Notes: Rfam assigns this 132-nucleotide RNA from Paenibacillus sambharensis to the family "Guanidine-I riboswitch aptamer". Pairs were carried over by alignment from the consensus structure. Lineage of the source: Bacteria > Bacillota > Bacilli > Caryophanales > Paenibacillus.

[Rfam]
RNA sequence: GCCAAAGCCGUCUAGGGUUCCGUUGGCCGCAGGUCAAGUCUGGUCCAAGAGACAGCGUAUGAGACGCAGACCCGGCCUUAACAGGCCGCUUUUGCAGCUCAUAUAACACGGAAGGAUAAAAGCCUGGGAGAU
Numbered sequence: 001g002c003c004a005a006a007g008c009c010g011u012c013u014a015g016g017g018u019u020c021c022g023u024u025g026g027c028c029g030c031a032g033g034u035c036a037a038g039u040c041u042g043g044u045c046c047a048a049g050a051g052a053c054a055g056c057g058u059a060u061g062a063g064a065c066g067c068a069g070a071c072c073c074g075g076c077c078u079u080a081a082c083a084g085g086c087c088g089c090u091u092u093u094g095c096a097g098c099u100c101a102u103a104u105a106a107c108a109c110g111g112a113a114g115g116a117u118a119a120a121a122g123c124c125u126g127g128g129a130g131a132u
Stems, first nucleotide, its partner, number of pairs: 007056002010053003015046002020043002022040001023037006063098001107127001109130001113125003